[Rfam]
Nucleotides: 150
Stems, first nucleotide, its partner, number of pairs: 019060005024051006032043004077095005097115004101108002119143005
Number, partner (000 for none) and nucleotide at each position: 001000u002000a003000a004000g005000u006000u007000u008000c009000u010000u011000a012000a013000g014000c015000c016000u017000a018000g019060g020059u021058a022057a023056a024051g025050g026049u027048g028047c029046u030000u031000u032043u033042u034041u035040g036000g037000u038000a039000a040035c041034g042033a043032a044000u045000u046029a047028g048027u049026a050025c051024u052000a053000a054000g055000c056023u057022u058021u059020a060019u061000c062000g063000a064000c065000a066000a067000u068000g069000u070000g071000a072000g073000a074000a075000g076000c077095u078094u079093u080092c081091c082000u083000a084000a085000a086000u087000a088000c089000g090000u091081g092080g093079a094078a095077a096000c097115u098114a099113u100112c101108u102107u103000a104000u105000u106000a107102g108101g109000c110000u111000a112100g113099a114098u115097a116000g117000c118000u119143a120142a121141g122140a123139a124000u125000a126000a127000c128000u129000u130000a131000a132000u133000g134000u135000g136000a137000a138000u139123u140122u141121c142120u143119u144000a145000a146000a147000g148000g149000c150000g
The record is a 150-nucleotide RNA from Tuber melanosporum, which matches "Group II catalytic intron D1-D4-7" in Rfam. Taxonomically the source falls in Tuber (Eukaryota, Ascomycota, saccharomyceta, Pezizomycetes). Rfam's curators write: Group II introns are found in rRNA, tRNA and mRNA of organelles in fungi, plants and protists, and also in mRNA in bacteria. The pairing is the family consensus, mapped onto this sequence.